[Rfam]
Shown here is a 120-nucleotide sequence from Arabis nemorensis, a member of the family "U5 spliceosomal RNA". The organism belongs to Arabis, within Eukaryota. Gene Ontology terms of the family: spliceosomal tri-snRNP complex assembly and U5 snRNP. It scores 69 bits against the family's covariance model. Rfam describes the family as follows. U5 RNA is a component of both types of known spliceosome. The precise function of this molecule is unknown, though it is known that the 5' loop is required for splice site selection and p220 binding, and that both the 3' stem-loop and the Sm site are important for Sm protein binding and cap methylation. The family's consensus secondary structure is taken from published work.

RNA sequence: GAGCCGUGCAGUGAGGGCAAAGCGAACUAUUCUUUUACCUUUUACUAAAGACUAUCGUGUCCUCUCUGCUCAUAAUCGGCAUACGCCUAUUUUUGGAAAGGGUUUCUAUAAAAGAAUCCU
Numbered sequence: 001g002a003g004c005c006g007u008g009c010a011g012u013g014a015g016g017g018c019a020a021a022g023c024g025a026a027c028u029a030u031u032c033u034u035u036u037a038c039c040u041u042u043u044a045c046u047a048a049a050g051a052c053u054a055u056c057g058u059g060u061c062c063u064c065u066c067u068g069c070u071c072a073u074a075a076u077c078g079g080c081a082u083a084c085g086c087c088u089a090u091u092u093u094u095g096g097a098a099a100g101g102g103u104u105u106c107u108a109u110a111a112a113a114g115a116a117u118c119c120u
Base pairs, nucleotide, nucleotide: 003080004079005078006077009068010067011066013064014063015062016061017060018059019058028054029053031051032050033049034048035047097120101119102118104116105115106114